[Rfam]
The record is a 128-nucleotide RNA from Chlorogloeopsis fritschii, which matches "c-di-AMP riboswitch aptamer (ydaO/yuaA leader)" in Rfam. Pairs were carried over by alignment from the consensus structure.
RNA sequence: AUGGUUAAAAAGCCUUAGAUCUGGACAAGAAGCGGAGGAACCAAUCUUUGGGGCGAAUCUCAAAGCGAGAGAGACACCUUCCAGUCUUAGCCCGUCAGCUAACUCCGUCGGCAUUGGAAGGAGUACCU
Numbered sequence: 001a002u003g004g005u006u007a008a009a010a011a012g013c014c015u016u017a018g019a020u021c022u023g024g025a026c027a028a029g030a031a032g033c034g035g036a037g038g039a040a041c042c043a044a045u046c047u048u049u050g051g052g053g054c055g056a057a058u059c060u061c062a063a064a065g066c067g068a069g070a071g072a073g074a075c076a077c078c079u080u081c082c083a084g085u086c087u088u089a090g091c092c093c094g095u096c097a098g099c100u101a102a103c104u105c106c107g108u109c110g111g112c113a114u115u116g117g118a119a120g121g122a123g124u125a126c127c128u
Stems, first nucleotide, its partner, number of pairs: 012112003020030002032108006042050002051093003059069003072087004